[Rfam]
RNA sequence: GAACAUCCACCUUUACUCGGAUCGUCCGGCACGUUCCUGCCGGUGAAGGAGCGAAGC
Numbered sequence: 001g002a003a004c005a006u007c008c009a010c011c012u013u014u015a016c017u018c019g020g021a022u023c024g025u026c027c028g029g030c031a032c033g034u035u036c037c038u039g040c041c042g043g044u045g046a047a048g049g050a051g052c053g054a055a056g057c
Stems, first nucleotide, its partner, number of pairs: 010049006026043006
msiK RNA: a 57-nucleotide RNA from Kitasatospora setae. It is annotated as a cis-regulatory element. It scores 50 bits against the family's covariance model. The base pairs follow the family's consensus structure, which is taken from published work.